Rfam assigns this 76-nucleotide sequence from Sarcophilus harrisii to the family "mir-216 microRNA precursor family". The family has 57 seed sequences and 1,667 matches in Rfam 15.1. The family is grouped with related families in Rfam's "mir-216 clan".

RNA sequence: AGACUGGGAAAUCUCUGCAGGCAAAUGUGGUGUUGCUAUAGUUAUCACACAAUUACCUGUAGAGAUUCUGCAAUCU
Numbered sequence: 001a002g003a004c005u006g007g008g009a010a011a012u013c014u015c016u017g018c019a020g021g022c023a024a025a026u027g028u029g030g031u032g033u034u035g036c037u038a039u040a041g042u043u044a045u046c047a048c049a050c051a052a053u054u055a056c057c058u059g060u061a062g063a064g065a066u067u068c069u070g071c072a073a074u075c076u
Base pairs, nucleotide, nucleotide: 003074005072006071010067011066012065013064014063015062016061017060020058021057023054024053026051027050028049029048
Dot-bracket structure: ..(.((...((((((((..((.((.((((..................)))).))..)).))))))))...)).)..